[Rfam]
Nucleotides: 087
Stems, first nucleotide, its partner, number of pairs: 003087002006084002
Number, partner (000 for none) and nucleotide at each position: 001000u002000u003087u004086g005000c006084a007083g008000u009000g010000a011000u012000u013000a014000g015000a016000a017000u018000g019000c020000a021000u022000a023000a024000u025000u026000c027000c028000u029000c030000g031000u032000u033000c034000u035000g036000a037000a038000u039000g040000c041000c042000a043000g044000a045000g046000g047000c048000a049000u050000g051000a052000g053000a054000g055000a056000c057000u058000c059000a060000a061000u062000c063000u064000u065000a066000c067000a068000c069000c070000c071000a072000u073000a074000g075000a076000a077000u078000c079000u080000g081000a082000g083007c084006u085000a086004c087003a